This 118-nucleotide RNA from Marinobacter vulgaris belongs to the Rfam family "t44 RNA". The family's consensus secondary structure was predicted with LocARNA. The match comes from Rfam's covariance-model search (58 bits).
RNA sequence: AAACAAAUCCGGCAAAUUCGCACACACGUCGGCACGUUGUCCCAGGGUGCCUGCUUCCGUUGUUCUUAUAGAAAGUAACGAAGCCAGGUUGGGUCAAUCGGACGUGUGGAGGACUAAC
Numbered sequence: 001a002a003a004c005a006a007a008u009c010c011g012g013c014a015a016a017u018u019c020g021c022a023c024a025c026a027c028g029u030c031g032g033c034a035c036g037u038u039g040u041c042c043c044a045g046g047g048u049g050c051c052u053g054c055u056u057c058c059g060u061u062g063u064u065c066u067u068a069u070a071g072a073a074a075g076u077a078a079c080g081a082a083g084c085c086a087g088g089u090u091g092g093g094u095c096a097a098u099c100g101g102a103c104g105u106g107u108g109g110a111g112g113a114c115u116a117a118c
Base pairs, nucleotide, nucleotide: 023108024107025106026105027104028103029102030101036098037097038096039095041093042092043091044090049089050088051087052086053085
Description: Rfam classes the family as a small RNA.